Record summary:
Rfam assigns this 70-nucleotide RNA from Janthinobacterium agaricidamnosum to the family "SAH (S-adenosyl-L-homocysteine) riboswitch aptamer".
[Rfam]
RNA sequence: AGACCCGAGGAGCGUUGCGACGAAGAACAUUCGCCAGGCUCGGGCUAUUCAGCAACCGCGCUCACGUUAC
Numbered sequence: 001a002g003a004c005c006c007g008a009g010g011a012g013c014g015u016u017g018c019g020a021c022g023a024a025g026a027a028c029a030u031u032c033g034c035c036a037g038g039c040u041c042g043g044g045c046u047a048u049u050c051a052g053c054a055a056c057c058g059c060g061c062u063c064a065c066g067u068u069a070c
Stems, first nucleotide, its partner, number of pairs: 002046001004044005021033004
A search with the family's covariance model found it, with a score of 53 bits.